[Rfam]
RNA sequence: AUCGAGCUGCGUUAGGGAUAGUAGCGAAAAUCCUUUUUAGAGGCUUUUCGCCGAUAAAAAGAUUGUAGCGAAUAGCCCGACCCUUG
Numbered sequence: 001a002u003c004g005a006g007c008u009g010c011g012u013u014a015g016g017g018a019u020a021g022u023a024g025c026g027a028a029a030a031u032c033c034u035u036u037u038u039a040g041a042g043g044c045u046u047u048u049c050g051c052c053g054a055u056a057a058a059a060a061g062a063u064u065g066u067a068g069c070g071a072a073u074a075g076c077c078c079g080a081c082c083c084u085u086g
Stems, first nucleotide, its partner, number of pairs: 015078003019074002024069002029064004035059005042052003